[Rfam]
RNA sequence: GGUCAUGAGUGUCAGCGUCAAGCCCCGGCUCGCUGGCCGGCAACCCUCCAACUCGCGGUGGGGUGCCCCGGGUGAGGACCAGGCAGGCACCACAACGGUGCAGGCAAGCGCGGGCC
Numbered sequence: 001g002g003u004c005a006u007g008a009g010u011g012u013c014a015g016c017g018u019c020a021a022g023c024c025c026c027g028g029c030u031c032g033c034u035g036g037c038c039g040g041c042a043a044c045c046c047u048c049c050a051a052c053u054c055g056c057g058g059u060g061g062g063g064u065g066c067c068c069c070g071g072g073u074g075a076g077g078a079c080c081a082g083g084c085a086g087g088c089a090c091c092a093c094a095a096c097g098g099u100g101c102a103g104g105c106a107a108g109c110g111c112g113g114g115c116c
Base pairs, nucleotide, nucleotide: 001080002079003078004077009038011037012036013035014034015033016032021030022029039067040066041065044063045062046061048058049057083105084104087101088100089099090098091097
RNA: SAM (S-adenosyl methionine) riboswitch aptamer
Organism: Micrococcus terreus